[Rfam]
The record is a 71-nucleotide RNA from Pogona vitticeps, which matches "Small nucleolar RNA SNORD18" in Rfam. Its family is annotated with nucleolus and RNA processing in the Gene Ontology. Lineage of the source: Eukaryota > Amniota > Bifurcata > Unidentata > Pogona. The match comes from Rfam's covariance-model search (75 bits). The family's RNA type in Rfam is C/D-box small nucleolar RNA. On this family, see Prislei et al., Nucleic Acids Res 1993: "Two different snoRNAs are encoded in introns of amphibian and human L1 ribosomal protein genes".
RNA sequence: UAAAAAUGAUGAUAUUCCACUUCAUUGGUCCGUGUUUCUGAAACACAUGAUUUGGUGGAAGUUCUGAUUUG
Numbered sequence: 001u002a003a004a005a006a007u008g009a010u011g012a013u014a015u016u017c018c019a020c021u022u023c024a025u026u027g028g029u030c031c032g033u034g035u036u037u038c039u040g041a042a043a044c045a046c047a048u049g050a051u052u053u054g055g056u057g058g059a060a061g062u063u064c065u066g067a068u069u070u071g
Stems, first nucleotide, its partner, number of pairs: 001071004